[Rfam]
RNA sequence: CCAAAGGCUCUUUUAAGAGCCACCACAUCCCCCUGAAAGAGCUUA
Number, nucleotide and partner (000 for none) at each position: 001c000002c000003a000004a000005a000006g021007g020008c019009u018010c017011u016012u000013u000014u000015a000016a011017g010018a009019g008020c007021c006022a000023c000024c000025a000026c000027a000028u000029c000030c000031c000032c000033c000034u000035g000036a000037a000038a000039g000040a000041g000042c000043u000044u000045a000
This 45-nucleotide RNA sequence from Xenopus laevis belongs to the Rfam family "Histone 3' UTR stem-loop". Rfam 15.1 lists 44,596 matches to the family in 976 species. It is annotated as a cis-regulatory element. Rfam describes the family as follows. The mRNAs of metazoan histone genes lack a poly-A tail. 3' end processing occurs at a site between a highly conserved stem-loop (modelled by this family) and a purine rich region around 20 nts downstream (the histone downstream element, or HDE). The stem-loop is bound by a 31 kDa stem-loop binding protein (SLBP - also termed the histone hairpin binding protein, or HBP). Together with U7 snRNA binding of the HDE, SLBP binding nucleate s the formation of the processing complex. A search with the family's covariance model found it, with a score of 34 bits. Pairs were carried over by alignment from the consensus structure, which is taken from published work.